Small nucleolar RNA SNORD116: a 95-nucleotide RNA sequence from Myotis lucifugus. The base pairs follow the family's consensus structure, which was predicted with PFOLD. By type it is a C/D-box small nucleolar RNA. The literature on the family includes a 2000 paper in Proc Natl Acad Sci U S A by Cavaille et al., "Identification of brain-specific and imprinted small nucleolar RNA genes exhibiting an unusual genomic organization". Gene Ontology terms of the family: RNA processing and nucleolus.
RNA sequence: AGAUCAAUGAUGACGCCAAAAAUGCAUUCCUUGAAAAGCGGAACAAAAUGAGUGAGAACCCAUACCGUCGUUGUUCUCAUCAGUAACUGAAGUCC
Numbered sequence: 001a002g003a004u005c006a007a008u009g010a011u012g013a014c015g016c017c018a019a020a021a022a023u024g025c026a027u028u029c030c031u032u033g034a035a036a037a038g039c040g041g042a043a044c045a046a047a048a049u050g051a052g053u054g055a056g057a058a059c060c061c062a063u064a065c066c067g068u069c070g071u072u073g074u075u076c077u078c079a080u081c082a083g084u085a086a087c088u089g090a091a092g093u094c095c
Stems, first nucleotide, its partner, number of pairs: 002094003025054005031046003